Shown here is a 147-nucleotide RNA sequence from Actinoplanes philippinensis, a member of the family "c-di-AMP riboswitch aptamer (ydaO/yuaA leader)". This family represents a conserved RNA structure found upstream of the ydaO and yuaA genes in Bacillus subtilis and related genes in other bacteria. NCBI's taxonomy places the organism under Bacteria, Bacillati, Actinomycetota, Micromonosporaceae, Actinoplanes.

RNA sequence: GGCGGACCACCGCCUAAUCGCGCGUGACCGCAAGGCCGGGCGCGAGCCGGGGAACCGAGCACCUGGGGUGAAGCCGCGGCGACGCGGCCGGGCAGACUUCCCGCCCGAACCCGUCAGCUAACCCGGUCGGCGGCUGAACGGGAAGAA
Numbered sequence: 001g002g003c004g005g006a007c008c009a010c011c012g013c014c015u016a017a018u019c020g021c022g023c024g025u026g027a028c029c030g031c032a033a034g035g036c037c038g039g040g041c042g043c044g045a046g047c048c049g050g051g052g053a054a055c056c057g058a059g060c061a062c063c064u065g066g067g068g069u070g071a072a073g074c075c076g077c078g079g080c081g082a083c084g085c086g087g088c089c090g091g092g093c094a095g096a097c098u099u100c101c102c103g104c105c106c107g108a109a110c111c112c113g114u115c116a117g118c119u120a121a122c123c124c125g126g127u128c129g130g131c132g133g134c135u136g137a138a139c140g141g142g143a144a145g146a147a
Base pairs, nucleotide, nucleotide: 011132012131013130014129018045019044020043021042022041023040046127047126048125049124050123051122056065057064066112067111068110074087075086076085077084090106091105092104093103